[Rfam]
RNA sequence: UUGCAUCCUCUGACAGACCUUGAGCAGUUUGUGGUUUUUCUUCUGGUUUGCACUAGGAUGCCAAAGAAAAUGCUCCCCAUGCUUCUUGCCUGUCUUUGUGGCAGUCCAGAUUGAAUUGGAGAGUACAUGU
Numbered sequence: 001u002u003g004c005a006u007c008c009u010c011u012g013a014c015a016g017a018c019c020u021u022g023a024g025c026a027g028u029u030u031g032u033g034g035u036u037u038u039u040c041u042u043c044u045g046g047u048u049u050g051c052a053c054u055a056g057g058a059u060g061c062c063a064a065a066g067a068a069a070a071u072g073c074u075c076c077c078c079a080u081g082c083u084u085c086u087u088g089c090c091u092g093u094c095u096u097u098g099u100g101g102c103a104g105u106c107c108a109g110a111u112u113g114a115a116u117u118g119g120a121g122a123g124u125a126c127a128u129g130u
Stems, first nucleotide, its partner, number of pairs: 003061006011052002014050006022040003026036003074122002077119003082113001086109003090104005
Record summary: Rfam assigns this 130-nucleotide RNA sequence from Mesocricetus auratus to the family "Small nucleolar RNA SNORA31". The source organism's lineage runs through Eukaryota, Chordata, Eutheria, Cricetidae and Mesocricetus. ACA31 (SNORA31) belongs to the H/ACA class of snoRNAs which are thought to guide the sites of modification of uridines to pseudouridines. ACA31 is predicted to guide the pseudouridylation of U3713 in 28S rRNA and U218 in 18S rRNA. This family includes the mouse homologue snoMBI-161. By type it is an H/ACA-box small nucleolar RNA. Rfam 15.1 lists 2,094 matches to the family in 626 species.